[Rfam]
RNA: Small nucleolar RNA ACA64
Organism: Anisodus acutangulus
RNA sequence: AGGCCUAGGCCUAGGCCUAGGCCUAGGCCUAGGCCUAGGCCUAGAGCCUAGGCCUAGAGCCUAGAGCCUAAACCUAGGCCUAGAGCCUAAACCUAAACCUAAACCUAGAGCCUAAACCUAAACCUAAACCUAGGCCCUAAACCU
Numbered sequence: 001a002g003g004c005c006u007a008g009g010c011c012u013a014g015g016c017c018u019a020g021g022c023c024u025a026g027g028c029c030u031a032g033g034c035c036u037a038g039g040c041c042u043a044g045a046g047c048c049u050a051g052g053c054c055u056a057g058a059g060c061c062u063a064g065a066g067c068c069u070a071a072a073c074c075u076a077g078g079c080c081u082a083g084a085g086c087c088u089a090a091a092c093c094u095a096a097a098c099c100u101a102a103a104c105c106u107a108g109a110g111c112c113u114a115a116a117c118c119u120a121a122a123c124c125u126a127a128a129c130c131u132a133g134g135c136c137c138u139a140a141a142c143c144u
Base pairs, nucleotide, nucleotide: 005051006050007049008048009047010046012043013042014041015040020035021034022033023032064137066135067134068133069132075126076125077124078123